[Rfam]
RNA sequence: GAACCAGGGGGUCGGGUCGCUUUGCCUGGCGAAGUGACCUAGGGGUACAGGGAGUACCUCCGUCAACGGACCGGGUUCGGCAGCGC
Numbered sequence: 001g002a003a004c005c006a007g008g009g010g011g012u013c014g015g016g017u018c019g020c021u022u023u024g025c026c027u028g029g030c031g032a033a034g035u036g037a038c039c040u041a042g043g044g045g046u047a048c049a050g051g052g053a054g055u056a057c058c059u060c061c062g063u064c065a066a067c068g069g070a071c072c073g074g075g076u077u078c079g080g081c082a083g084c085g086c
Stems, first nucleotide, its partner, number of pairs: 001078005010072004014040005020034006042060007

Shown here is an 86-nucleotide sequence from Pseudomonas sp. BAY1663, a member of the family "ivy-DE RNA". Pairs were carried over by alignment from the consensus structure, which is taken from published work. Rfam classes the family as a cis-regulatory element. It scores 83 bits against the family's covariance model.